[Rfam]
RNA sequence: AUGAACGCAACGGGAGAGAUCGCCGGUACAUGAAGCGGCGCCGAAGGAGUAACCCUGCCCGGCAGGGGAAUCUCUCAGGCAGAAGGACCUUUGCGGGACG
Numbered sequence: 001a002u003g004a005a006c007g008c009a010a011c012g013g014g015a016g017a018g019a020u021c022g023c024c025g026g027u028a029c030a031u032g033a034a035g036c037g038g039c040g041c042c043g044a045a046g047g048a049g050u051a052a053c054c055c056u057g058c059c060c061g062g063c064a065g066g067g068g069a070a071u072c073u074c075u076c077a078g079g080c081a082g083a084a085g086g087a088c089c090u091u092u093g094c095g096g097g098a099c100g
Stems, first nucleotide, its partner, number of pairs: 006095005012089002020038004040080003043076002047074003053067004
RNA: Glycine riboswitch aptamer
Organism: Paenibacillus sp. D9